[Rfam]
RNA sequence: GCUCUUCGCUAGGGGUGUUGAACGCGACAGCGUUCGACUGAGAACAGACCCUUUGAACCUGACUGAGGUAAUCCUCGCGCAGGGAAGCAUGCAUGACACCCA
Numbered sequence: 001g002c003u004c005u006u007c008g009c010u011a012g013g014g015g016u017g018u019u020g021a022a023c024g025c026g027a028c029a030g031c032g033u034u035c036g037a038c039u040g041a042g043a044a045c046a047g048a049c050c051c052u053u054u055g056a057a058c059c060u061g062a063c064u065g066a067g068g069u070a071a072u073c074c075u076c077g078c079g080c081a082g083g084g085a086a087g088c089a090u091g092c093a094u095g096a097c098a099c100c101c102a
Stems, first nucleotide, its partner, number of pairs: 008088003011052004016046001017038008058083004064077004
TPP riboswitch aptamer (THI element): a 102-nucleotide RNA sequence from Rhizobacter terrae. Rfam links the family to the GO term thiamine pyrophosphate binding. Rfam describes the family as follows. Vitamin B(1) in its active form thiamin pyrophosphate (TPP) is an essential coenzyme that is synthesised by coupling of pyrimidine and thiazole moieties in bacteria.